Rfam assigns this 363-nucleotide RNA from Pontibacillus litoralis to the family "transfer-messenger RNA".
The family's RNA type in Rfam is non-coding RNA gene.
It scores 216 bits against the family's covariance model.
The family is grouped with related families in Rfam's "tRNA clan".
[Rfam]
RNA sequence: GGGGACGUUACGGAUUCGACAGGGAUAGGUCGAGCUUAAGUUGCGAGCCGAGCGGUACCUCGUUAAAGGCCAUGCCUAAAUUAUAACUGGCAAAGAAAACAAUUACUCUCUAGCAGCUGCAUAAGCUGAUUCUAGAGGAUCCUUCCUACCAUCGCCCGUGUGGUAGAUAGAAGGGUCUCAAACUGAAGCGGGCUAUGCGUUCAGUCGCCGUCUUAGGGUGAACGAAGAACUUAAUAAGACUAGCUACACGGAAGCCUGUCGAUAGGCUGAAGUGCUAGCGAAUGGCUAAUAUAUCGACUACGCUCGUAGAAGCUUAAGUGCCGAUAUCUUUGGACGUGGGUUCGACUCCCACCGUCUCCACUU
Numbered sequence: 001g002g003g004g005a006c007g008u009u010a011c012g013g014a015u016u017c018g019a020c021a022g023g024g025a026u027a028g029g030u031c032g033a034g035c036u037u038a039a040g041u042u043g044c045g046a047g048c049c050g051a052g053c054g055g056u057a058c059c060u061c062g063u064u065a066a067a068g069g070c071c072a073u074g075c076c077u078a079a080a081u082u083a084u085a086a087c088u089g090g091c092a093a094a095g096a097a098a099a100c101a102a103u104u105a106c107u108c109u110c111u112a113g114c115a116g117c118u119g120c121a122u123a124a125g126c127u128g129a130u131u132c133u134a135g136a137g138g139a140u141c142c143u144u145c146c147u148a149c150c151a152u153c154g155c156c157c158g159u160g161u162g163g164u165a166g167a168u169a170g171a172a173g174g175g176u177c178u179c180a181a182a183c184u185g186a187a188g189c190g191g192g193c194u195a196u197g198c199g200u201u202c203a204g205u206c207g208c209c210g211u212c213u214u215a216g217g218g219u220g221a222a223c224g225a226a227g228a229a230c231u232u233a234a235u236a237a238g239a240c241u242a243g244c245u246a247c248a249c250g251g252a253a254g255c256c257u258g259u260c261g262a263u264a265g266g267c268u269g270a271a272g273u274g275c276u277a278g279c280g281a282a283u284g285g286c287u288a289a290u291a292u293a294u295c296g297a298c299u300a301c302g303c304u305c306g307u308a309g310a311a312g313c314u315u316a317a318g319u320g321c322c323g324a325u326a327u328c329u330u331u332g333g334a335c336g337u338g339g340g341u342u343c344g345a346c347u348c349c350c351a352c353c354g355u356c357u358c359c360a361c362u363u
Stems, first nucleotide, its partner, number of pairs: 001359007020332008032321001034319009044306005049062004054076004109136005115130001117128001138177006146166007154193006198224006210241001213238002243279004247274003254267003258298004262292003336352005